[Rfam]
RNA sequence: AACGGCAUCCGCUGGCGAGCCCACCUCCCUGGGCAGCCACAGGCGCGAACCUCUCCCCUGGGUCUUCGCGCCUGCCCGCCCCGGAGGCUCCCCCUAGCCUCCGGGGCUUUUUU
Dot-bracket structure: ...(((....)))(((..((((........)))).))).((((((((((((........))...))))))))))...(((((((.((((......)))).)))))))......
A member of the RNA family "Xanthomonadaceae sRNA sX13" from Rhodanobacter thiooxydans, 113 nucleotides long. It scores 54 bits against the family's covariance model. It is annotated as a small RNA. The source organism's lineage runs through Bacteria, Gammaproteobacteria, Lysobacterales, Rhodanobacteraceae and Rhodanobacter. The family's consensus secondary structure was predicted with CMfinder.